[Rfam]
RNA sequence: UCCCAGUGAAGAAAUACUCACAAGUCUUACUUCCUGUCCUAGUCCCAGAGCCUGUAAAGGUGAACCCACUGGGGCUGGCUGGGGGAGAAGAGGAAAGCUUGUUCCAGAGGGAACUGUCUGAGGGAU
Numbered sequence: 001u002c003c004c005a006g007u008g009a010a011g012a013a014a015u016a017c018u019c020a021c022a023a024g025u026c027u028u029a030c031u032u033c034c035u036g037u038c039c040u041a042g043u044c045c046c047a048g049a050g051c052c053u054g055u056a057a058a059g060g061u062g063a064a065c066c067c068a069c070u071g072g073g074g075c076u077g078g079c080u081g082g083g084g085g086a087g088a089a090g091a092g093g094a095a096a097g098c099u100u101g102u103u104c105c106a107g108a109g110g111g112a113a114c115u116g117u118c119u120g121a122g123g124g125a126u
Stems, first nucleotide, its partner, number of pairs: 001125004
This 126-nucleotide RNA from Bos taurus belongs to the Rfam family "Small nucleolar RNA SNORD22". It is one of the family's seed sequences. Gene Ontology terms of the family: RNA processing and nucleolus.